Rfam assigns this 125-nucleotide RNA sequence from Prolemur simus to the family "Small Cajal body specific RNA 4".
The family is grouped with related families in Rfam's "SCARNA4 clan".
NCBI's taxonomy places the organism under Eukaryota, Deuterostomia, Eutheria, Lemuriformes, Prolemur.
Rfam 15.1 lists 634 matches to the family in 510 species.
From the family's description: scaRNAs are a specific class of small nuclear RNAs which localise to the Cajal bodies and guide the modification of RNA polymerase II transcribed spliceosomal RNAs U1, U2, U4, U5 and U12. ACA26 belongs to the H/ACA box class of guide RNAs as it has the predicted hairpin-hinge-hairpin-tail structure, conserved H/ACA-box motifs and is found associated with GAR1.
The match comes from Rfam's covariance-model search (64 bits).
[Rfam]
RNA sequence: ACUGGAGGCCUGGGAAGGCCAAGUCUGACAACGCAAGACUCUGCUGAUGCCUUCCUCCCAAAAACAGGGUCAGAGAGAGCAGCCCCUCCUGGGCUGUCCCGGGCUGCCUGCGCCCACCGGUACCC
Numbered sequence: 001a002c003u004g005g006a007g008g009c010c011u012g013g014g015a016a017g018g019c020c021a022a023g024u025c026u027g028a029c030a031a032c033g034c035a036a037g038a039c040u041c042u043g044c045u046g047a048u049g050c051c052u053u054c055c056u057c058c059c060a061a062a063a064a065c066a067g068g069g070u071c072a073g074a075g076a077g078a079g080c081a082g083c084c085c086c087u088c089c090u091g092g093g094c095u096g097u098c099c100c101g102g103g104c105u106g107c108c109u110g111c112g113c114c115c116a117c118c119g120g121u122a123c124c125c
Stems, first nucleotide, its partner, number of pairs: 003060001004058005017045003022040005068118003078109002080106006